[Rfam]
RNA sequence: AUAACGCAAACGUGGGAAGCGGCGUGCUUCCCGUGUAUGAUUGAACCCGCGAACCGCCCCAGCCACACCGGAGCGGUCUGUUUCGGGUUCAUUUUUUG
Numbered sequence: 001a002u003a004a005c006g007c008a009a010a011c012g013u014g015g016g017a018a019g020c021g022g023c024g025u026g027c028u029u030c031c032c033g034u035g036u037a038u039g040a041u042u043g044a045a046c047c048c049g050c051g052a053a054c055c056g057c058c059c060c061a062g063c064c065a066c067a068c069c070g071g072a073g074c075g076g077u078c079u080g081u082u083u084c085g086g087g088u089u090c091a092u093u094u095u096u097u098g
Stems, first nucleotide, its partner, number of pairs: 013033009042091007
sroE RNA: a 98-nucleotide sequence from Cronobacter sakazakii. The source organism's lineage runs through Bacteria, Pseudomonadota, Gammaproteobacteria, Enterobacterales and Cronobacter sakazakii. For this family Rfam cites "RNomics in Escherichia coli detects new sRNA species and indicates parallel transcriptional output in bacteria" (Vogel et al., Nucleic Acids Res, 2003). Rfam's curators write: This family consists of a number of bacterial sroE RNA genes of around 90 bases in length. sroE is found in several Enterobacterial species but its function is unknown.